Shown here is a 141-nucleotide sequence from Tetrahymena elliotti, a member of the family "Tetrahymena snoRNA TtnuHACA11a".
The sequence is in the family's curated seed alignment.
The source organism's lineage runs through Eukaryota, Intramacronucleata, Oligohymenophorea, Tetrahymena and Tetrahymena elliotti.
Pairs were carried over by alignment from the consensus structure, which was predicted with mfold.
Rfam classes the family as an H/ACA-box small nucleolar RNA.

[Rfam]
RNA sequence: AUAUUGUCAAAGGUUUUACUGCCUUGUUGAUAGCUUUACAUAAUUUAUUGACUAACUGUUAAAACCUAAAGAACCUGUGCUCCUCCACAUUUAGUAUCCUAACGAUGGGUAUCUUAAUACUAUCAGAGCACUUCAUUUUUG
Numbered sequence: 001a002u003a004u005u006g007u008c009a010a011a012g013g014u015u016u017u018a019c020u021g022c023c024u025u026g027u028u029g030a031u032a033g034c035u036u037u038a039c040a041u042a043a044u045u046u047a048u049u050g051a052c053u054a055a056c057u058g059u060u061a062a063a064a065c066c067u068a069a070a071g072a073a074c075c076u077g078u079g080c081u082c083c084u085c086c087a088c089a090u091u092u093a094g095u096a097u098c099c100u101a102a103c104g105a106u107g108g109g110u111a112u113c114u115u116a117a118u119a120c121u122a123u124c125a126g127a128g129c130a131c132u133u134c135a136u137u138u139u140u141g
Base pairs, nucleotide, nucleotide: 011067012066013065014064015063016062017061018060026052027051028050029049030048031047032046033045035043036042071134072133073132077131078130079129080128081127082126091117092116093115094112095111096110097109098108099107